[Rfam]
RNA sequence: UUCUUAUUGGAUUAUGACUGUCACGUGUCAUGUUCUGAUUGGUCAAUGAAAAUAACAAUACAUUUAAUCUUUUAUGGAGUUGACAUUCAAUCAAAACGUGACACGUGACGGUCAACAUCA
Numbered sequence: 001u002u003c004u005u006a007u008u009g010g011a012u013u014a015u016g017a018c019u020g021u022c023a024c025g026u027g028u029c030a031u032g033u034u035c036u037g038a039u040u041g042g043u044c045a046a047u048g049a050a051a052a053u054a055a056c057a058a059u060a061c062a063u064u065u066a067a068u069c070u071u072u073u074a075u076g077g078a079g080u081u082g083a084c085a086u087u088c089a090a091u092c093a094a095a096a097c098g099u100g101a102c103a104c105g106u107g108a109c110g111g112u113c114a115a116c117a118u119c120a
Stems, first nucleotide, its partner, number of pairs: 020109004025104002029100003033096002036093001038091005
RNA: MIR1520 microRNA precursor family